[Rfam]
RNA sequence: UUGUGAUGUAGCAUGCCCGUUUGGUGCUUAACUCUGAUGUAUAUUUGUUAUUUAAUUACUUUUGGGUAACGGGGUGUUACACCCUC
Number, nucleotide and partner (000 for none) at each position: 001u000002u000003g085004u000005g083006a000007u081008g080009u079010a078011g077012c076013a075014u074015g000016c073017c072018c071019g070020u069021u068022u000023g000024g000025u000026g000027c000028u000029u000030a000031a000032c000033u000034c000035u000036g000037a000038u000039g000040u000041a000042u000043a000044u000045u000046u000047g000048u000049u000050a000051u000052u000053u000054a000055a000056u000057u000058a000059c000060u000061u000062u000063u000064g000065g000066g000067u000068a021069a020070c019071g018072g017073g016074g014075u013076g012077u011078u010079a009080c008081a007082c000083c005084c000085u003086c000
Annotation
MIR2617 microRNA precursor family: an 86-nucleotide sequence from Medicago truncatula. The organism belongs to Medicago, within Eukaryota. Its family is annotated with RISC complex and miRNA-mediated post-transcriptional gene silencing in the Gene Ontology.